int-alpA RNA: a 77-nucleotide sequence from Comamonas flocculans. A search with the family's covariance model found it, with a score of 64 bits. About the family: Acidobacteria (1 example), Planctomycetes (1 example), Proteobacteria. Lineage of the source: Bacteria > Pseudomonadati > Betaproteobacteria > Comamonadaceae > Comamonas. By type it is a small RNA.
[Rfam]
RNA sequence: GCCCCAGCUAGGCCAGCUUCGAAACCUGGCCGAAAAGCGGGUUUCCCUGCCCGCCUGCUGGGGCACCUUUUCAGGGG
Numbered sequence: 001g002c003c004c005c006a007g008c009u010a011g012g013c014c015a016g017c018u019u020c021g022a023a024a025c026c027u028g029g030c031c032g033a034a035a036a037g038c039g040g041g042u043u044u045c046c047c048u049g050c051c052c053g054c055c056u057g058c059u060g061g062g063g064c065a066c067c068u069u070u071u072c073a074g075g076g077g
Stems, first nucleotide, its partner, number of pairs: 001064008011031006037054005045077004